[Rfam]
Shown here is a 78-nucleotide sequence from Gouania willdenowi, a member of the family "mir-19 microRNA precursor family". The literature on the family includes a 2001 paper in Science by Lagos-Quintana et al., "Identification of novel genes coding for small expressed RNAs". A search with the family's covariance model found it, with a score of 71 bits.
RNA sequence: UCGCUCGGUCCGUUUUGCUGGUUUGCAUCCAGCUUUAACACGUUUGCUGUGCAAAUCCAUGCAAAACUGACGGGGUAA
Numbered sequence: 001u002c003g004c005u006c007g008g009u010c011c012g013u014u015u016u017g018c019u020g021g022u023u024u025g026c027a028u029c030c031a032g033c034u035u036u037a038a039c040a041c042g043u044u045u046g047c048u049g050u051g052c053a054a055a056u057c058c059a060u061g062c063a064a065a066a067c068u069g070a071c072g073g074g075g076u077a078a
Stems, first nucleotide, its partner, number of pairs: 003076004008071003012067007020058002022055007031048003